This 104-nucleotide RNA sequence from Prunus persica belongs to the Rfam family "MIR6274 microRNA precursor family". The family has 2 seed sequences and 342 matches in Rfam 15.1. The source organism's lineage runs through Eukaryota, Euphyllophyta, fabids, Amygdaloideae and Prunus. Pairs were carried over by alignment from the consensus structure, which was predicted with RNAalifold.
RNA sequence: GGAUAGCACUGUUUUGCUAUCCCCGACCAAUAACACAAUAACACGUGGAAAAGUUAUCAUACGUGUCAUUGCGUUAUUGGUCGGGAUAGCAAAAAGUGAUAUUC
Numbered sequence: 001g002g003a004u005a006g007c008a009c010u011g012u013u014u015u016g017c018u019a020u021c022c023c024c025g026a027c028c029a030a031u032a033a034c035a036c037a038a039u040a041a042c043a044c045g046u047g048g049a050a051a052a053g054u055u056a057u058c059a060u061a062c063g064u065g066u067c068a069u070u071g072c073g074u075u076a077u078u079g080g081u082c083g084g085g086a087u088a089g090c091a092a093a094a095a096g097u098g099a100u101a102u103u104c
Stems, first nucleotide, its partner, number of pairs: 002103004012094009022085013036071004041066007050057001